[Rfam]
RNA sequence: UGAUAGCGUAGAAGCGUGAAGUUGCUGACAUAGUCAGGUAUCUCCGUGGAGCGAAUGUCAAGUUAGGAAACUGGCGACAA
Numbered sequence: 001u002g003a004u005a006g007c008g009u010a011g012a013a014g015c016g017u018g019a020a021g022u023u024g025c026u027g028a029c030a031u032a033g034u035c036a037g038g039u040a041u042c043u044c045c046g047u048g049g050a051g052c053g054a055a056u057g058u059c060a061a062g063u064u065a066g067g068a069a070a071c072u073g074g075c076g077a078c079a080a
Stems, first nucleotide, its partner, number of pairs: 014047003018044002021041001025037005056079004062075004

Source information:
The family of this 80-nucleotide sequence from Lachnospiraceae bacterium KH1T2 is "S10-Clostridia ribosomal protein leader". For this family Rfam cites "Discovery of 20 novel ribosomal leader candidates in bacteria and archaea" (Eckert and Weinberg, BMC Microbiol, 2020). By type it is a cis-regulatory leader. It scores 82 bits against the family's covariance model. The base pairs follow the family's consensus structure, which is taken from published work.